RNA sequence: CGACCUCAAAUCAGGUAGGAAUACCCGCUGAACUUAAGCAUAUCAAUAAGCGGAGGAAAAGAAACCAACAGGGAUUGCCUCAGUAGCGGCGAGUGAAGCGGCAAGAGCUCAGAUUUGAAAUCGUGCUUUGCGGCACGAGUUGUAGAUUGCAGGUUGGAGUCUGUGUGGAAGGCGGUGUCCAAGUCCCUUGGAACAGGGCGCCCAGGAGGGUGAGAGCCCCGUGGGAUGCCGGCGGAAGCAGUGAGGCCCUUCUGACGAGUCGAGUUGUUUGGGAAUGCAGCUCCAAGCGGGUGGUAAAUUCCAUCUAAGGCUAAAUACUGGCGAGAGACCGAUAGCGAACAAGUACUGUGAAGGAAAGAUGAAAAGCACUUUGAAAAGAGAGUGAAACAGCACGUGAAAUUGUUGAAAGGGAAG
Numbered sequence: 001c002g003a004c005c006u007c008a009a010a011u012c013a014g015g016u017a018g019g020a021a022u023a024c025c026c027g028c029u030g031a032a033c034u035u036a037a038g039c040a041u042a043u044c045a046a047u048a049a050g051c052g053g054a055g056g057a058a059a060a061g062a063a064a065c066c067a068a069c070a071g072g073g074a075u076u077g078c079c080u081c082a083g084u085a086g087c088g089g090c091g092a093g094u095g096a097a098g099c100g101g102c103a104a105g106a107g108c109u110c111a112g113a114u115u116u117g118a119a120a121u122c123g124u125g126c127u128u129u130g131c132g133g134c135a136c137g138a139g140u141u142g143u144a145g146a147u148u149g150c151a152g153g154u155u156g157g158a159g160u161c162u163g164u165g166u167g168g169a170a171g172g173c174g175g176u177g178u179c180c181a182a183g184u185c186c187c188u189u190g191g192a193a194c195a196g197g198g199c200g201c202c203c204a205g206g207a208g209g210g211u212g213a214g215a216g217c218c219c220c221g222u223g224g225g226a227u228g229c230c231g232g233c234g235g236a237a238g239c240a241g242u243g244a245g246g247c248c249c250u251u252c253u254g255a256c257g258a259g260u261c262g263a264g265u266u267g268u269u270u271g272g273g274a275a276u277g278c279a280g281c282u283c284c285a286a287g288c289g290g291g292u293g294g295u296a297a298a299u300u301c302c303a304u305c306u307a308a309g310g311c312u313a314a315a316u317a318c319u320g321g322c323g324a325g326a327g328a329c330c331g332a333u334a335g336c337g338a339a340c341a342a343g344u345a346c347u348g349u350g351a352a353g354g355a356a357a358g359a360u361g362a363a364a365a366g367c368a369c370u371u372u373g374a375a376a377a378g379a380g381a382g383u384g385a386a387a388c389a390g391c392a393c394g395u396g397a398a399a400u401u402g403u404u405g406a407a408a409g410g411g412a413a414g
Stems, first nucleotide, its partner, number of pairs: 024055001025053005035042002065072002076103004086094002106312004112147001114145002118141002121138007152253002156249002159247004165239002173231007183199001185198004202206001209219002262283007289306005346353002369380004

Shown here is a 414-nucleotide part of an RNA from Pichia kudriavzevii, a member of the family "Eukaryotic large subunit ribosomal RNA".